MIR2619 microRNA precursor family: a 199-nucleotide RNA sequence from Medicago truncatula. Rfam links the family to the GO terms RISC complex and miRNA-mediated post-transcriptional gene silencing. The organism belongs to Medicago, within Eukaryota. Pairs were carried over by alignment from the consensus structure, which was predicted with RNAalifold.

RNA sequence: AAACAACCCCCUAUGUAUUGGAUCUUUGGCAGUUUUGGUCCCAAGACCACUUUUGACUUAGUCUUCGCUGACAUGACACCCACAAUGGUCGACACCUGGCACCUCAAUUAAGAGAUGUGGGUGCCACGUCAGCGAAGAUUAAGUCAAAAGUGGCCUUGGGGCCAAAAGUGCCAAAGAUCCAAUACAUAGGGGACUGUUU
Numbered sequence: 001a002a003a004c005a006a007c008c009c010c011c012u013a014u015g016u017a018u019u020g021g022a023u024c025u026u027u028g029g030c031a032g033u034u035u036u037g038g039u040c041c042c043a044a045g046a047c048c049a050c051u052u053u054u055g056a057c058u059u060a061g062u063c064u065u066c067g068c069u070g071a072c073a074u075g076a077c078a079c080c081c082a083c084a085a086u087g088g089u090c091g092a093c094a095c096c097u098g099g100c101a102c103c104u105c106a107a108u109u110a111a112g113a114g115a116u117g118u119g120g121g122u123g124c125c126a127c128g129u130c131a132g133c134g135a136a137g138a139u140u141a142a143g144u145c146a147a148a149a150g151u152g153g154c155c156u157u158g159g160g161g162c163c164a165a166a167a168g169u170g171c172c173a174a175a176g177a178u179c180c181a182a183u184a185c186a187u188a189g190g191g192g193a194c195u196g197u198u199u
Base pairs, nucleotide, nucleotide: 001199002198004196005195008192012188013187014186015185016184017183018182019181020180021179022178023177024176025175026174027173028172029171030170031169033167034166035165036164037163038162039161040160041159042158043157044156071129072128074126075125077123078122079121080120081119